[Rfam]
RNA sequence: AGAACCUUUAACACAGUCCAGAGAGGCUGAGAAGGAAGCGGAGCGUUAAGGAUAUACUAUGACUAUAUCCUGAUUCUAACGAGCAAAAUCCUCAUGCCCUCUUGGCAUGGGGAUUUUUUUAU
Number, nucleotide and partner (000 for none) at each position: 001a000002g000003a000004a000005c035006c034007u033008u032009u031010a000011a000012c000013a000014c029015a028016g027017u026018c025019c000020a000021g000022a000023g000024a000025g018026g017027c016028u015029g014030a000031g009032a008033a007034g006035g005036a000037a000038g000039c000040g000041g000042a000043g000044c000045g075046u000047u073048a000049a071050g000051g000052a068053u067054a066055u065056a064057c000058u000059a000060u000061g000062a000063c000064u056065a055066u054067a053068u052069c000070c000071u049072g000073a047074u000075u045076c000077u000078a000079a000080c000081g000082a000083g000084c000085a117086a116087a115088a114089u113090c112091c111092u110093c109094a108095u107096g106097c105098c104099c000100u000101c000102u000103u000104g098105g097106c096107a095108u094109g093110g092111g091112g090113a089114u088115u087116u086117u085118u000119u000120u000121a000122u000
The family of this 122-nucleotide sequence from Bacillus sp. V59.32b is "PyrR binding site". The literature on the family includes a 2001 paper in Nucleic Acids Res by Bonner et al., "Molecular recognition of pyr mRNA by the Bacillus subtilis attenuation regulatory protein PyrR". The source organism's lineage runs through Bacteria, Bacillota, Bacilli, Caryophanales and Bacillus. Rfam classes the family as a cis-regulatory element. The match comes from Rfam's covariance-model search (63 bits).